[Rfam]
RNA sequence: CCUGAGUGAAAGACAUGGGUAGUGAGAUUUGACUAUCACAAAACAAUCUCACUAUUCUGUUUUUCCCCUGGUG
Numbered sequence: 001c002c003u004g005a006g007u008g009a010a011a012g013a014c015a016u017g018g019g020u021a022g023u024g025a026g027a028u029u030u031g032a033c034u035a036u037c038a039c040a041a042a043a044c045a046a047u048c049u050c051a052c053u054a055u056u057c058u059g060u061u062u063u064u065c066c067c068c069u070g071g072u073g
Base pairs, nucleotide, nucleotide: 008065009064010063011062012061013060014059015058017057018056019055021053022052023051024050025049026048027047028046029045